[Rfam]
RNA: Small nucleolar RNA SNORA38
Organism: Myotis davidii
RNA sequence: GCCAUUGAAAUAACUUUUCUGUGGUUCCCUGUCUUUGGACACGUAAGCACUGGAGGCAAAGCGAUGUGGACUUGGAGAACUCUGGAGCCAGCUUGCUCCCUGCAGGCUCAAGAGCAACCAUCCCACAUAG
Number, nucleotide and partner (000 for none) at each position: 001g000002c053003c052004a000005u000006u000007g000008a000009a000010a000011u000012a000013a000014c043015u000016u041017u000018u039019c038020u037021g000022u000023g029024g028025u000026u000027c000028c024029c023030u000031g000032u000033c000034u000035u000036u000037g020038g019039a018040c000041a016042c000043g014044u000045a000046a000047g000048c000049a000050c000051u000052g003053g002054a000055g000056g000057c000058a000059a000060a000061g000062c000063g000064a000065u000066g000067u000068g123069g122070a121071c000072u120073u000074g000075g000076a000077g000078a000079a000080c000081u000082c000083u000084g000085g000086a000087g000088c000089c000090a108091g107092c106093u105094u104095g103096c102097u000098c000099c000100c000101u000102g096103c095104a094105g093106g092107c091108u090109c000110a000111a000112g000113a000114g000115c000116a000117a000118c000119c000120a072121u070122c069123c068124c000125a000126c000127a000128u000129a000130g000